Rfam assigns this 109-nucleotide sequence from Thermohalobacter berrensis to the family "pan motif". The match comes from Rfam's covariance-model search (56 bits). The family's consensus secondary structure is taken from published work.
RNA sequence: UGGAUAGUAUCACUUUGUGUGAACUAUACCACAAUUUAAUCAUUUACUUAAAAUUAAAUAUUAAUUAAUGGUUCUGCUCUGAGCCUUUGCUAUGGACGGAGACAGAAAA
Numbered sequence: 001u002g003g004a005u006a007g008u009a010u011c012a013c014u015u016u017g018u019g020u021g022a023a024c025u026a027u028a029c030c031a032c033a034a035u036u037u038a039a040u041c042a043u044u045u046a047c048u049u050a051a052a053a054u055u056a057a058a059u060a061u062u063a064a065u066u067a068a069u070g071g072u073u074c075u076g077c078u079c080u081g082a083g084c085c086u087u088u089g090c091u092a093u094g095g096a097c098g099g100a101g102a103c104a105g106a107a108a109a
Stems, first nucleotide, its partner, number of pairs: 001031003004027005010022002074105003077101005084095002